[Rfam]
RNA sequence: CUCUUAUCCAGAGUGGCGGAGGGACGGGCCCGAUGAUGCACGGCAACCCUGAUUUUUGAAUCAGAAGGUGCCAAUUCCUGUAGAGGUUUGAUACCUCUAGAAGAUAAGAG
Dot-bracket structure: ((((((((....[[.[[...[[[.((((]]]......]]]]((((.((((((........))))..))))))...[))))((((((.......))))))..]))))))))
Numbered sequence: 001c002u003c004u005u006a007u008c009c010a011g012a013g014u015g016g017c018g019g020a021g022g023g024a025c026g027g028g029c030c031c032g033a034u035g036a037u038g039c040a041c042g043g044c045a046a047c048c049c050u051g052a053u054u055u056u057u058g059a060a061u062c063a064g065a066a067g068g069u070g071c072c073a074a075u076u077c078c079u080g081u082a083g084a085g086g087u088u089u090g091a092u093a094c095c096u097c098u099a100g101a102a103g104a105u106a107a108g109a110g
Stems, first nucleotide, its partner, number of pairs: 001110008013041002016039002021031003025080004042072004047068002049064004076102001081099006

A member of the RNA family "SAM riboswitch aptamer (S box leader)" from Seinonella peptonophila, 110 nucleotides long. Pairs were carried over by alignment from the consensus structure, which is taken from published work. A search with the family's covariance model found it, with a score of 94 bits. Lineage of the source: Bacteria > Bacillati > Caryophanales > Thermoactinomycetaceae > Seinonella.